Notes:
A member of the RNA family "Iron response element II" from Tinamus guttatus, 32 nucleotides long.

RNA sequence: UUUUAAUCAGUGACAGUGAUCUACUAUUAAAU
Number, nucleotide and partner (000 for none) at each position: 001u000002u031003u030004u029005a028006a027007u026008c000009a025010g024011u023012g021013a020014c018015a000016g000017u000018g014019a000020u013021c012022u000023a011024c010025u009026a007027u006028u005029a004030a003031a002032u000
Description
From the family's description: IRE, TFRC, SLC40A1, SDHB, SLC11A2, CDC42BPA, ACO2, ALAS2_H.SAPIENS, CDC14A, EPAS1, ALAS2, qoxD, Hao1, NDUFS1, transferrin, Aconitate. The literature on the family includes a 1989 paper in Proc Natl Acad Sci U S A by Koeller et al., "A cytosolic protein binds to structural elements within the iron regulatory region of the transferrin receptor mRNA". The base pairs follow the family's consensus structure, which is taken from published work.